[Rfam]
RNA: MIR394 microRNA precursor family
Organism: Durio zibethinus
RNA sequence: GUUGCAGAGCCAAUUUGGCAUUCUGUCCACCUCCAUCAAUCCUUCUUCACACGACUACCCAGCUCAAAUGAUUGUCCAUUGAAGUGGAGGCGGCCAGCAUGUCAAACAGGCUCUGUAAA
Dot-bracket structure: ..........(...((((((...((.((.(((((((...............................................))))))).)).))...))))))...)..........